Rfam assigns this 105-nucleotide sequence from Serpentinicella alkaliphila to the family "Guanidine-I riboswitch aptamer". It scores 65 bits against the family's covariance model. The literature on the family includes a 2017 paper in Structure by Reiss et al., "Structural Basis for Ligand Binding to the Guanidine-I Riboswitch".
RNA sequence: UGAAAGUGUAUCUAGGGUUCCGUUCAUUUUUGAAGCUGGUCCGAGCGAUACAGGCAUCGUUGAUCAUCGUUGAUGUCACACCGAAGGGACAAAAGCCCGGGCGGA
Numbered sequence: 001u002g003a004a005a006g007u008g009u010a011u012c013u014a015g016g017g018u019u020c021c022g023u024u025c026a027u028u029u030u031u032g033a034a035g036c037u038g039g040u041c042c043g044a045g046c047g048a049u050a051c052a053g054g055c056a057u058c059g060u061u062g063a064u065c066a067u068c069g070u071u072g073a074u075g076u077c078a079c080a081c082c083g084a085a086g087g088g089a090c091a092a093a094a095g096c097c098c099g100g101g102c103g104g105a
Stems, first nucleotide, its partner, number of pairs: 007052006015042002020039002022036001023034004053077007079100001081103001086098003